[Rfam]
U5 spliceosomal RNA: a 117-nucleotide RNA sequence from Oryctolagus cuniculus. Pairs were carried over by alignment from the consensus structure, which is taken from published work. U5 RNA is a component of both types of known spliceosome. The precise function of this molecule is unknown, though it is known that the 5' loop is required for splice site selection and p220 binding, and that both the 3' stem-loop and the Sm site are important for Sm protein binding and cap methylation. Rfam links the family to the GO terms spliceosomal tri-snRNP complex assembly and U5 snRNP. The organism belongs to Oryctolagus, within Eukaryota. The match comes from Rfam's covariance-model search (44 bits).
RNA sequence: AUAUUCUGGUUUCUCUCCAGGCUGUACAGAUCUUUUGCCUUUUAAGAAAGGUUUCCAUGGAAAAGACCCUUCCUUCACUUGUACCUUAUUUUGUGUUUUCUUUAUAUCACAUAGAAU
Numbered sequence: 001a002u003a004u005u006c007u008g009g010u011u012u013c014u015c016u017c018c019a020g021g022c023u024g025u026a027c028a029g030a031u032c033u034u035u036u037g038c039c040u041u042u043u044a045a046g047a048a049a050g051g052u053u054u055c056c057a058u059g060g061a062a063a064a065g066a067c068c069c070u071u072c073c074u075u076c077a078c079u080u081g082u083a084c085c086u087u088a089u090u091u092u093g094u095g096u097u098u099u100c101u102u103u104a105u106a107u108c109a110c111a112u113a114g115a116a117u
Stems, first nucleotide, its partner, number of pairs: 003079001005077001009068001011066002014063001016061004028054008098116004103111001